[Rfam]
RNA sequence: UGUGGAUCAGUGAUGUUAUUGAAAUACUGCGUUAUCUAUCUGCAAAGUUGUAUUAUUUGAUGAUAACCAUUAGUUCUGAGAUCCGAU
Numbered sequence: 001u002g003u004g005g006a007u008c009a010g011u012g013a014u015g016u017u018a019u020u021g022a023a024a025u026a027c028u029g030c031g032u033u034a035u036c037u038a039u040c041u042g043c044a045a046a047g048u049u050g051u052a053u054u055a056u057u058u059g060a061u062g063a064u065a066a067c068c069a070u071u072a073g074u075u076c077u078g079a080g081a082u083c084c085g086a087u
Stems, first nucleotide, its partner, number of pairs: 003085005